[Rfam]
RNA sequence: CUCUGUUAAUGAAGUCUCUCCCUCUAAACCCCUUUAAGGACUGGGAGAGGCAGAGCUAGCCCCAGAG
Numbered sequence: 001c002u003c004u005g006u007u008a009a010u011g012a013a014g015u016c017u018c019u020c021c022c023u024c025u026a027a028a029c030c031c032c033u034u035u036a037a038g039g040a041c042u043g044g045g046a047g048a049g050g051c052a053g054a055g056c057u058a059g060c061c062c063c064a065g066a067g
Stems, first nucleotide, its partner, number of pairs: 001067005014051009031039002
RNA: Selenocysteine insertion sequence 1